[Rfam]
RNA sequence: AAUGCGCCUUUUUUGUAUUCUUGUAUAAGUUCAUAAAUAAGGUAUGGGCGUUUCUACCAGACAACCUUAAAUUGUCAUAGGCUACAAGAAGCAUGAAAUUAUUU
Dot-bracket structure: .................((((((((...(((((((.......)))))))........(.(((((.......)))))...)..))))))))..............
This 104-nucleotide RNA from Propionispira arboris belongs to the Rfam family "Purine riboswitch aptamer". It scores 68 bits against the family's covariance model. Gene Ontology term of the family: purine nucleobase biosynthetic process.